[Rfam]
RNA sequence: AUUAUUACCCUAACAGAAACAUUGACUUUGGUUCUUAAUAGUAAGUGCUUUUUGUUGGGGUAGUUUUG
Numbered sequence: 001a002u003u004a005u006u007a008c009c010c011u012a013a014c015a016g017a018a019a020c021a022u023u024g025a026c027u028u029u030g031g032u033u034c035u036u037a038a039u040a041g042u043a044a045g046u047g048c049u050u051u052u053u054g055u056u057g058g059g060g061u062a063g064u065u066u067u068g
Stems, first nucleotide, its partner, number of pairs: 004064008013055005018049001020047004025042003